Rfam assigns this 89-nucleotide RNA from Kribbella turkmenica to the family "ZMP/ZTP riboswitch aptamer (pfl RNA motif)".

RNA sequence: UCCGCGGACCGCGACUGGCGUUGAGGUGGAGGACCACCGGGGAACGGUCUGCCGGAGAUCCGGCCUCGCCGCGCGCCUGGGCACCUCUG
Numbered sequence: 001u002c003c004g005c006g007g008a009c010c011g012c013g014a015c016u017g018g019c020g021u022u023g024a025g026g027u028g029g030a031g032g033a034c035c036a037c038c039g040g041g042g043a044a045c046g047g048u049c050u051g052c053c054g055g056a057g058a059u060c061c062g063g064c065c066u067c068g069c070c071g072c073g074c075g076c077c078u079g080g081g082c083a084c085c086u087c088u089g
Stems, first nucleotide, its partner, number of pairs: 004052008015041002017077005026037004068082003